[Rfam]
RNA sequence: CCGCGCUAAGCGGGGAGGUAGCGGUGCCCUAUGCCUGCAAUCCGCUAUAGCAGGGUCGAAUUCUCGUCCUGAGGCCAAAGACUGCGGAACCGGACUUCAUGAAGGAAUGUUGAUCUCCGGGUCCUGUGCAAUCGCUCGCCGUGAACCAUGUCAGGUCCUGACGGAAGCAGCAUUUAGCGGAGAGAGCGGUGUGCCGCAGGUUCACCUGGAAGGAGUCACCUGAUGAGGAGACGACCACGGGUUCUGCGAUCGAGGGAGGAGUGCGCGG
Number, nucleotide and partner (000 for none) at each position: 001c268002c267003g266004c265005g264006c263007u000008a000009a000010g056011c055012g030013g029014g028015g027016a000017g025018g000019u023020a000021g000022c000023g019024g000025u017026g000027c015028c014029c013030u012031a000032u000033g000034c054035c053036u052037g051038c050039a000040a000041u000042c000043c000044g000045c000046u000047a000048u000049a000050g038051c037052a036053g035054g034055g011056u010057c000058g000059a000060a000061u000062u000063c261064u260065c259066g000067u257068c256069c255070u254071g000072a000073g251074g250075c000076c248077a000078a000079a245080g244081a243082c000083u241084g000085c239086g238087g236088a000089a000090c000091c233092g232093g000094a000095c000096u227097u226098c225099a224100u223101g000102a000103a000104g220105g219106a000107a216108u215109g000110u000111u000112g000113a000114u212115c000116u210117c209118c208119g207120g206121g205122u204123c200124c199125u198126g197127u196128g195129c191130a190131a000132u189133c188134g187135c186136u185137c182138g000139c180140c179141g178142u177143g000144a000145a000146c000147c000148a173149u172150g171151u170152c000153a000154g000155g000156u165157c164158c163159u000160g000161a000162c000163g158164g157165a156166a000167g000168c000169a000170g151171c150172a149173u148174u000175u000176a000177g142178c141179g140180g139181a000182g137183a000184g000185a136186g135187c134188g133189g132190u130191g129192u000193g000194c000195c128196g127197c126198a125199g124200g123201u000202u000203c000204a122205c121206c120207u119208g118209g117210a116211a000212g114213g000214a000215g108216u107217c000218a000219c105220c104221u000222g000223a100224u099225g098226a097227g096228g000229a000230g000231a000232c092233g091234a000235c000236c087237a000238c086239g085240g000241g083242u000243u081244c080245u079246g000247c000248g076249a000250u074251c073252g000253a000254g070255g069256g068257a067258g000259g065260a064261g063262u000263g006264c005265g004266c003267g002268g001
Rfam assigns this 268-nucleotide sequence from Clostridium sp. CAG:1024 to the family "Bacterial large signal recognition particle RNA". Lineage of the source: Bacteria > Bacillota > Clostridia > Clostridiaceae > Clostridium. The family's consensus secondary structure is taken from published work. It scores 178 bits against the family's covariance model.